Record summary:
A member of the RNA family "tRNA" from Aspergillus tubingensis, 113 nucleotides long.

RNA sequence: GGCAAGAUGGCCGAGUUGGUCCAAGGCGUCAGGUUAAGGUCCACCUUAAUAACCCAGCUUCACAGCUUCCUGAUCAUCGUAAGAUGGCGUGGGUUCGAAUCCCACUCUUGUCA
Dot-bracket structure: (((((((..(((............))).(((((...................................)))))...............(((((.......)))))))))))).
Numbered sequence: 001g002g003c004a005a006g007a008u009g010g011c012c013g014a015g016u017u018g019g020u021c022c023a024a025g026g027c028g029u030c031a032g033g034u035u036a037a038g039g040u041c042c043a044c045c046u047u048a049a050u051a052a053c054c055c056a057g058c059u060u061c062a063c064a065g066c067u068u069c070c071u072g073a074u075c076a077u078c079g080u081a082a083g084a085u086g087g088c089g090u091g092g093g094u095u096c097g098a099a100u101c102c103c104a105c106u107c108u109u110g111u112c113a
Stems, first nucleotide, its partner, number of pairs: 001112007010027003029073005089105005
Transfer RNA (tRNA) molecules are approximately 80 nucleotides in length.
NCBI's taxonomy places the organism under Eukaryota, Ascomycota, saccharomyceta, Aspergillus subgen. Circumdati, Aspergillus tubingensis.
The family's RNA type in Rfam is transfer RNA.